This 374-nucleotide part of an RNA from uncultured marine crenarchaeote 'Gulf of Maine' belongs to the Rfam family "Archaeal large subunit ribosomal RNA". The organism belongs to Thermoproteota, within Archaea. The literature on the family includes a 2001 paper in Science by Yusupov et al., "Crystal structure of the ribosome at 5.5 A resolution".

[Rfam]
RNA sequence: CGGGUAUACCGUAUGGCGAGGGAAUUCGGCAAAUUAGUCCUGUAGCUUAGGUAUAAGGGAUGCCUGCGGGCUUCAUGAGGAAUGGGGUCCGCAGGUUGCAAUAACAAGGGGGUUCCGACUGUUUAAUAAAAACACAGGCGACUGCUAGUCCGAAAGGAUUUGUAUAGUCGCUGAAUCCUGGCCGGUGCCGGUACCUAAAACUUGGGUUCAACCGAGCUAAGGGCCGGUUAACGCCGGGAGUAACUCUGACUCUCUUAAGGUAGCCAAAUGCCUUGUCGGGUAAGUUCCGACGCGCAUGAAUGGAACAACGAGAGCCCCACUGUCCCCGCCUACAACCCGGUGAAGCCACAUAAGGUGGACGAACAGUCCAUCAA
Numbered sequence: 001c002g003g004g005u006a007u008a009c010c011g012u013a014u015g016g017c018g019a020g021g022g023a024a025u026u027c028g029g030c031a032a033a034u035u036a037g038u039c040c041u042g043u044a045g046c047u048u049a050g051g052u053a054u055a056a057g058g059g060a061u062g063c064c065u066g067c068g069g070g071c072u073u074c075a076u077g078a079g080g081a082a083u084g085g086g087g088u089c090c091g092c093a094g095g096u097u098g099c100a101a102u103a104a105c106a107a108g109g110g111g112g113u114u115c116c117g118a119c120u121g122u123u124u125a126a127u128a129a130a131a132a133c134a135c136a137g138g139c140g141a142c143u144g145c146u147a148g149u150c151c152g153a154a155a156g157g158a159u160u161u162g163u164a165u166a167g168u169c170g171c172u173g174a175a176u177c178c179u180g181g182c183c184g185g186u187g188c189c190g191g192u193a194c195c196u197a198a199a200a201c202u203u204g205g206g207u208u209c210a211a212c213c214g215a216g217c218u219a220a221g222g223g224c225c226g227g228u229u230a231a232c233g234c235c236g237g238g239a240g241u242a243a244c245u246c247u248g249a250c251u252c253u254c255u256u257a258a259g260g261u262a263g264c265c266a267a268a269u270g271c272c273u274u275g276u277c278g279g280g281u282a283a284g285u286u287c288c289g290a291c292g293c294g295c296a297u298g299a300a301u302g303g304a305a306c307a308a309c310g311a312g313a314g315c316c317c318c319a320c321u322g323u324c325c326c327c328g329c330c331u332a333c334a335a336c337c338c339g340g341u342g343a344a345g346c347c348a349c350a351u352a353a354g355g356u357g358g359a360c361g362a363a364c365a366g367u368c369c370a371u372c373a374a
Stems, first nucleotide, its partner, number of pairs: 001339004011333003015330004020325003037061005045052002062096015097101001109318007116310002120134003137172008145162001148159004176304003180235003185232002187228005194223003201216005236254006255259001275291006354372005